A member of the RNA family "abiF RNA", 36 nucleotides long. Rfam's curators write: Actinobacteria, Bacteroidetes, Clostridia, Proteobacteria, one Clostridia phage. The family's RNA type in Rfam is small RNA. Rfam's curators put it in the seed alignment.

[Rfam]
RNA sequence: CCCGUCACGCCUCUCAACAAUGCGCACCAGACGGGC
Numbered sequence: 001c002c003c004g005u006c007a008c009g010c011c012u013c014u015c016a017a018c019a020a021u022g023c024g025c026a027c028c029a030g031a032c033g034g035g036c
Stems, first nucleotide, its partner, number of pairs: 001035006008024003
Dot-bracket structure: ((((((.(((...........))).....)))))).